[Rfam]
RNA sequence: GUCAAUUAUCAUUAGUUCCUUGCUUCCUGUGGAUGACCGGGCCAACUUUGGAAGCUAAUAAUCCGUAAGGAGCAAUAAAUG
Number, nucleotide and partner (000 for none) at each position: 001g000002u000003c000004a000005a000006u000007u000008a000009u000010c000011a000012u000013u000014a000015g073016u072017u071018c070019c069020u068021u067022g055023c054024u053025u052026c051027c050028u000029g000030u044031g043032g042033a000034u000035g000036a000037c000038c000039g000040g000041g000042c032043c031044a030045a000046c000047u000048u000049u000050g027051g026052a025053a024054g023055c022056u000057a000058a000059u000060a000061a000062u000063c000064c000065g000066u000067a021068a020069g019070g018071a017072g016073c015074a000075a000076u000077a000078a000079a000080u000081g000
The family of this 81-nucleotide sequence from Vibrio ziniensis is "RpsF leader".
Taxonomically the source falls in Vibrio (Bacteria, Pseudomonadota, Gammaproteobacteria, Vibrionaceae).
Gene Ontology terms of the family: protein binding and negative regulation of translation.
Conserved and widely distributed to many bacterial species RNA structure.